Fluoride riboswitch aptamer (crcB RNA motif): a 78-nucleotide RNA sequence from Arachidicoccus ginsenosidivorans.
RNA sequence: UUCUAAAAAGGAAAUGGUGUCUUCCUACUGAACCGCCAAAGAUCACAGUAUCUUCAGGCUGAUGGCGCCUACAAAUAA
Numbered sequence: 001u002u003c004u005a006a007a008a009a010g011g012a013a014a015u016g017g018u019g020u021c022u023u024c025c026u027a028c029u030g031a032a033c034c035g036c037c038a039a040a041g042a043u044c045a046c047a048g049u050a051u052c053u054u055c056a057g058g059c060u061g062a063u064g065g066c067g068c069c070u071a072c073a074a075a076u077a078a
Stems, first nucleotide, its partner, number of pairs: 010025004016069006035059003